[Rfam]
RNA sequence: GUACUCCCUCCGUCCCAUAAUAUAAGAACAUUUUUGACAGUGUAGUGUCAAAAACAUUCUUAUAUUAUGAGACGGAGGGAGUAU
Numbered sequence: 001g002u003a004c005u006c007c008c009u010c011c012g013u014c015c016c017a018u019a020a021u022a023u024a025a026g027a028a029c030a031u032u033u034u035u036g037a038c039a040g041u042g043u044a045g046u047g048u049c050a051a052a053a054a055c056a057u058u059c060u061u062a063u064a065u066u067a068u069g070a071g072a073c074g075g076a077g078g079g080a081g082u083a084u
Stems, first nucleotide, its partner, number of pairs: 003082003007078005013072002016069002019066010031054009
Dot-bracket structure: ..(((.(((((.((.((.((((((((((..(((((((((......)))))))))..)))))))))).)).)).))))).)))..
This 84-nucleotide RNA sequence from Triticum aestivum belongs to the Rfam family "MIR1120/MIR1122 microRNA precursor family".
Gene Ontology terms of the family: miRNA-mediated post-transcriptional gene silencing and RISC complex.
Rfam 15.1 lists 44,765 matches to the family in 8 species.